MIR9563 microRNA precursor family: a 124-nucleotide sequence from Brassica carinata. A search with the family's covariance model found it, with a score of 115 bits.
Nucleotides: 124
Stems, first nucleotide, its partner, number of pairs: 001124016018107022041085007
Number, partner (000 for none) and nucleotide at each position: 001124g002123g003122a004121a005120u006119a007118u008117a009116a010115g011114a012113a013112c014111c015110u016109g017000g018107u019106u020105u021104u022103u023102a024101a025100c026099u027098u028097u029096u030095a031094a032093c033092u034091a035090a036089a037088a038087a039086a040000u041085c042084u043083a044082a045081g046080a047079a048000c049000c050000g051000g052000u053000u054000c055000u056000u057000a058000a059000a060000u061000a062000a063000g064000a065000g066000u067000u068000u069000u070000a071000a072000g073000a074000g075000a076000c077000g078000g079047u080046u081045c082044u083043u084042a085041g086039u087038u088037u089036u090035u091034u092033a093032g094031u095030u096029a097028a098027a099026a100025g101024u102023u103022a104021a105020g106019a107018g108000a109016c110015g111014g112013g113012u114011u115010u116009u117008u118007a119006u120005a121004u122003u123002c124001c